[Rfam]
RNA sequence: UUUUAUUUGUAGGUCGCGGAAGGUUGCAAUGCGUAUUUUGAAUCGUAUUGCACUUUCCCCGGCCCAUAGAUAUUAU
Numbered sequence: 001u002u003u004u005a006u007u008u009g010u011a012g013g014u015c016g017c018g019g020a021a022g023g024u025u026g027c028a029a030u031g032c033g034u035a036u037u038u039u040g041a042a043u044c045g046u047a048u049u050g051c052a053c054u055u056u057c058c059c060c061g062g063c064c065c066a067u068a069g070a071u072a073u074u075a076u
Stems, first nucleotide, its partner, number of pairs: 004072003009067002012064003016060001018058003022054003026051008